Shown here is a 128-nucleotide RNA from Sciurus vulgaris, a member of the family "Small nucleolar RNA SNORA61". Rfam describes the family as follows. ACA61 is a member of the H/ACA class of snoRNA that guide the sites of modification of uridines to pseudouridines. A search with the family's covariance model found it, with a score of 84 bits. Pairs were carried over by alignment from the consensus structure, which was predicted with PFOLD. Rfam 15.1 lists 881 matches to the family in 421 species.
RNA sequence: CAUCUCGGGUUCCCUUUUCUAUUGGAUCUGAACACUGGUUUUGGUGGCUGCAGAAUAAGGAAAAGUAAUAAGCUAGUCUCAUAGCAUUGUAGUCUGGUGUGCCCCAUGGGGGUUAGUUUCCAACAGAG
Numbered sequence: 001c002a003u004c005u006c007g008g009g010u011u012c013c014c015u016u017u018u019c020u021a022u023u024g025g026a027u028c029u030g031a032a033c034a035c036u037g038g039u040u041u042u043g044g045u046g047g048c049u050g051c052a053g054a055a056u057a058a059g060g061a062a063a064a065g066u067a068a069u070a071a072g073c074u075a076g077u078c079u080c081a082u083a084g085c086a087u088u089g090u091a092g093u094c095u096g097g098u099g100u101g102c103c104c105c106a107u108g109g110g111g112g113u114u115a116g117u118u119u120c121c122a123a124c125a126g127a128g
Stems, first nucleotide, its partner, number of pairs: 003060003007056001019047005025040004073116007088106002